[Rfam]
RNA sequence: AGGGCCACCGGGUCCACUGCCCGGGUGGCCAGCAGGUAGUCCCGAAGCGCUAUUCCGUGCCGGCCCUC
Dot-bracket structure: ....(..(..(((.((((.....)))))))....((.(.(..((...))..)).))..)..)......